Rfam assigns this 62-nucleotide sequence from Cajanus cajan to the family "Plastid-psbA-2 3UTR RNA".
The family's RNA type in Rfam is cis-regulatory element.
A reference for the family is Richter et al. (2023), "Retrograde signaling in plants: A critical review focusing on the GUN pathway and beyond", Plant Commun.
Pairs were carried over by alignment from the consensus structure, which was predicted with LocARNA.
About the family: Plastid psbA-2 is a non-coding RNA (ncRNA) present in plastids. It was identified in inverted repeat sequences in the 3 prime untranslate region (3UTR) of photosystem II quinone-binding protein (psbA).
The match comes from Rfam's covariance-model search (70 bits).
Its Rfam clan is "Plastid-psbA 3UTR RNA clan".
[Rfam]
RNA sequence: AUAAAGGAGCAAUAACCAAUUUCUUGUUCUAUCAAGAGUGUUGGUAUUGCUCCUUAAUUUUC
Numbered sequence: 001a002u003a004a005a006g007g008a009g010c011a012a013u014a015a016c017c018a019a020u021u022u023c024u025u026g027u028u029c030u031a032u033c034a035a036g037a038g039u040g041u042u043g044g045u046a047u048u049g050c051u052c053c054u055u056a057a058u059u060u061u062c
Stems, first nucleotide, its partner, number of pairs: 001058002004055011016043001017040002022037005